[Rfam]
RNA sequence: GUAAAAGGUAUUGCUACAUAUAGCACUGGCUUGCAAGGAGAAAUCUGGCCAGUGCUCAUGUAACAAUCCCUCUAGCU
Numbered sequence: 001g002u003a004a005a006a007g008g009u010a011u012u013g014c015u016a017c018a019u020a021u022a023g024c025a026c027u028g029g030c031u032u033g034c035a036a037g038g039a040g041a042a043a044u045c046u047g048g049c050c051a052g053u054g055c056u057c058a059u060g061u062a063a064c065a066a067u068c069c070c071u072c073u074a075g076c077u
Stems, first nucleotide, its partner, number of pairs: 001076002004073001006071003010067004015062005022056010
The family of this 77-nucleotide sequence from Nicotiana sylvestris is "MIR6145 microRNA precursor family". Its family is annotated with miRNA-mediated post-transcriptional gene silencing and RISC complex in the Gene Ontology. NCBI's taxonomy places the organism under Eukaryota, Magnoliopsida, asterids, Nicotianoideae, Nicotiana. The family's consensus secondary structure was predicted with RNAalifold.